A member of the RNA family "mir-312 microRNA precursor family" from Drosophila ananassae, 67 nucleotides long.
RNA sequence: UUUCCGGUGCGUCUCUAGUGCAACUCUUGGUUUUUUAUACAAGUAUUGCACUUGAGACGGCCGAAAU
Numbered sequence: 001u002u003u004c005c006g007g008u009g010c011g012u013c014u015c016u017a018g019u020g021c022a023a024c025u026c027u028u029g030g031u032u033u034u035u036u037a038u039a040c041a042a043g044u045a046u047u048g049c050a051c052u053u054g055a056g057a058c059g060g061c062c063g064a065a066a067u
Stems, first nucleotide, its partner, number of pairs: 003065001005063004010059004015054001017052002020049004026043003
Its family is annotated with RISC complex and miRNA-mediated post-transcriptional gene silencing in the Gene Ontology.